Overview
Alphaproteobacterial ar14: a 119-nucleotide sequence from Prosthecomicrobium pneumaticum. The source organism's lineage runs through Bacteria, Pseudomonadota, Hyphomicrobiales, Kaistiaceae and Prosthecomicrobium. The match comes from Rfam's covariance-model search (78 bits). Pairs were carried over by alignment from the consensus structure. A reference for the family is Robledo et al. (2017), "A conserved alpha-proteobacterial small RNA contributes to osmoadaptation and symbiotic efficiency of rhizobia on legume roots", Environ Microbiol.
[Rfam]
RNA sequence: GAGCUUCGCCGGAGGAACCUCCUCCCUCCUCCGGUGAUCGGCGCGACGCGGACCUCCUCCCCCGCUUAGCGCCAUUUCCUGAGCGCCCGUCGGACCUCCUCCCCCGACGGGCGCUUUUU
Numbered sequence: 001g002a003g004c005u006u007c008g009c010c011g012g013a014g015g016a017a018c019c020u021c022c023u024c025c026c027u028c029c030u031c032c033g034g035u036g037a038u039c040g041g042c043g044c045g046a047c048g049c050g051g052a053c054c055u056c057c058u059c060c061c062c063c064g065c066u067u068a069g070c071g072c073c074a075u076u077u078c079c080u081g082a083g084c085g086c087c088c089g090u091c092g093g094a095c096c097u098c099c100u101c102c103c104c105c106g107a108c109g110g111g112c113g114c115u116u117u118u119u
Stems, first nucleotide, its partner, number of pairs: 007036009041072004046067001048065003083114011